[Rfam]
RNA: Makes More Granules Regulator RNA (mmgR)
Organism: Novosphingobium sediminicola
RNA sequence: GGAGCGGGCCUUUUAGGCAUCCUCUCCCAAAACUUCCAAAGCCCGGCUCCGGCCGGGUUUUUUUUGCCCGCA
Numbered sequence: 001g002g003a004g005c006g007g008g009c010c011u012u013u014u015a016g017g018c019a020u021c022c023u024c025u026c027c028c029a030a031a032a033c034u035u036c037c038a039a040a041g042c043c044c045g046g047c048u049c050c051g052g053c054c055g056g057g058u059u060u061u062u063u064u065u066g067c068c069c070g071c072a
Stems, first nucleotide, its partner, number of pairs: 008018004042057006